Plant signal recognition particle RNA: a 295-nucleotide RNA.
It is annotated as a non-coding RNA gene.
The family is grouped with related families in Rfam's "SRP clan".
On this family, see Batey et al., Science 2000: "Crystal structure of the ribonucleoprotein core of the signal recognition particle".
[Rfam]
Nucleotides: 295
Stems, first nucleotide, its partner, number of pairs: 001020006008013001025034003046294005053287002055284003058280003062276001065273001071268004075260003078256001080254001083252001085251002096245007104234002107232005113225008123162006130156002132153009170215005181206003188199003
Number, partner (000 for none) and nucleotide at each position: 001020g002019a003018g004017u005016u006015g007000a008013u009000u010000a011000a012000c013008a014000c015006c016005a017004a018003c019002u020001u021000g022000u023000g024000a025034c026033c027032c028000a029000u030000g031000u032027g033026g034025g035000a036000g037000c038000a039000a040000c041000a042000a043000a044000g045000g046294g047293a048292u049291g050290g051000a052000a053287c054286a055284u056283g057282g058280c059279u060278g061000u062276g063000u064000c065273u066000u067000a068000a069000c070000a071268g072267g073266u074265u075260g076259g077258g078256c079000u080254g081000u082000a083252g084000g085251g086250u087000a088000c089000a090000c091000u092000a093000a094000g095000c096245u097244g098243g099242c100241u101240u102239g103000c104234c105233c106000a107232c108231u109230c110229c111228a112000a113225g114224u115223u116222g117221a118220g119219a120218g121000u122000u123162g124161g125160g126159c127158c128157a129000u130156g131155g132153g133152a134151u135150u136149u137148g138147g139146g140145c141000g142000a143000a144000g145140g146139c147138u148137c149136a150135g151134g152133u153132c154000u155131c156130c157128u158127g159126g160125u161124c162123c163000c164000u165000a166000g167000a168000a169000c170215g171214g172213a173212g174211g175000g176000a177000a178000c179000c180000g181206c182205a183204u184000g185000a186000g187000g188199c189198u190197g191000g192000u193000u194000u195000c196000a197190c198189a199188g200000a201000g202000c203000a204183g205182u206181g207000a208000a209000c210000a211174c212173u213172u214171c215170c216000u217000u218120c219119u220118c221117u222116c223115g224114a225113c226000a227000g228111u229110g230109g231108a232107g233105g234104g235000a236000u237000u238000a239102c240101a241100g242099g243098c244097u245096g246000c247000u248000g249000c250086a251085u252083u253000c254080u255000c256078g257000g258077u259076c260075c261000a262000u263000a264000u265074a266073g267072c268071c269000u270000g271000g272000u273065g274000a275000g276062c277000c278060u279059a280058g281000c282057c283056c284055a285000u286054u287053g288000a289000a290050c291049c292048a293047u294046c295000a